[Rfam]
RNA sequence: AGCUUUUUGAAUCCGUGCCGAGAUUUCGUCCGAUACCAACCCAUUAGGGCUGAUCAGACUUCCAGAUAAGGGAAGUU
Numbered sequence: 001a002g003c004u005u006u007u008u009g010a011a012u013c014c015g016u017g018c019c020g021a022g023a024u025u026u027c028g029u030c031c032g033a034u035a036c037c038a039a040c041c042c043a044u045u046a047g048g049g050c051u052g053a054u055c056a057g058a059c060u061u062c063c064a065g066a067u068a069a070g071g072g073a074a075g076u077u
Base pairs, nucleotide, nucleotide: 002076003075004074005073006072008070011067012066013065017063020061021060022059024058025057026056028054029053030052
The family of this 77-nucleotide RNA sequence from Schistosoma margrebowiei is "mir-3492 microRNA precursor family".
Rfam links the family to the GO terms miRNA-mediated post-transcriptional gene silencing and RISC complex.
NCBI's taxonomy places the organism under Eukaryota, Opisthokonta, Lophotrochozoa, Digenea, Schistosoma.